Rfam assigns this 93-nucleotide RNA to the family "DUF1874 RNA".
[Rfam]
RNA sequence: GUAAUCCCGCCUUGUGGGUAGGUCAUCCACAGGUAAGACCGUCCAAAGGGCGGCGCCUACCCACUCCCGAAAGGGAAAAGGCGGGAAGGAGGU
Numbered sequence: 001g002u003a004a005u006c007c008c009g010c011c012u013u014g015u016g017g018g019u020a021g022g023u024c025a026u027c028c029a030c031a032g033g034u035a036a037g038a039c040c041g042u043c044c045a046a047a048g049g050g051c052g053g054c055g056c057c058u059a060c061c062c063a064c065u066c067c068c069g070a071a072a073g074g075g076a077a078a079a080g081g082c083g084g085g086a087a088g089g090a091g092g093u
Base pairs, nucleotide, nucleotide: 005086006085007084008083009082010081011080012079013078015063016062017061018060019059020058021057022056023055037054039053040052041051042050043049065076066075067074068073

Record summary: It is one of the family's seed sequences. Rfam classes the family as a cis-regulatory element. The base pairs follow the family's consensus structure, which is taken from published work.